[Rfam]
RNA sequence: AGUGAUGGUAGAGGAGCGAAAACCAUUAGUAAACCAGUUGAGAGCGAUGAGGUUCUAAGACACUGGUUAAAAGGGGAAUUCGCCGAAGUUUGUAUAGAGCUCAUAGCUAUGCAUGCUGGACUUAUCUCGAACAGAGAUAAGGCUGUCACUUGACUAUACCCAAUAGUCUUGUGGAGAACUAUCUCACGU
Dot-bracket structure: ......(((((....(((((..((.......(((((((.......................)))))))......))..)))))...(((.(((((((.........))))))).)))((.((((((((.....)))))))).)).((((..((((.........))))..))))....)))))......
Rfam assigns this 189-nucleotide sequence from Alkalihalophilus pseudofirmus to the family "Lysine riboswitch aptamer". Rfam links the family to the GO term lysine biosynthetic process. A search with the family's covariance model found it, with a score of 111 bits.